[Rfam]
RNA sequence: AACUAAAAAUUCUCCGUGUCUUGAUUUCGUGAUAACCAGGGCAGGAGAGACAUUCACUUUAUGAAGAUAAUGAAUGUGUCCCCAGGUCUAGUGCCUUCCCUAAGUCUGGCUUUAAAAAUGCUGGUGAUACAC
Numbered sequence: 001a002a003c004u005a006a007a008a009a010u011u012c013u014c015c016g017u018g019u020c021u022u023g024a025u026u027u028c029g030u031g032a033u034a035a036c037c038a039g040g041g042c043a044g045g046a047g048a049g050a051c052a053u054u055c056a057c058u059u060u061a062u063g064a065a066g067a068u069a070a071u072g073a074a075u076g077u078g079u080c081c082c083c084a085g086g087u088c089u090a091g092u093g094c095c096u097u098c099c100c101u102a103a104g105u106c107u108g109g110c111u112u113u114a115a116a117a118a119u120g121c122u123g124g125u126g127a128u129a130c131a132c
Stems, first nucleotide, its partner, number of pairs: 004056001017043007025035002067125002070122001072121001082109006089102003
The family of this 132-nucleotide RNA from Loxodonta africana is "Small nucleolar RNA SNORA72". U72 is a member of the H/ACA class of snoRNAs. The snoRNA gene is located in intron 4 of the ribosomal L30 protein gene in human, mouse and chicken. Pairs were carried over by alignment from the consensus structure, which was predicted with PFOLD.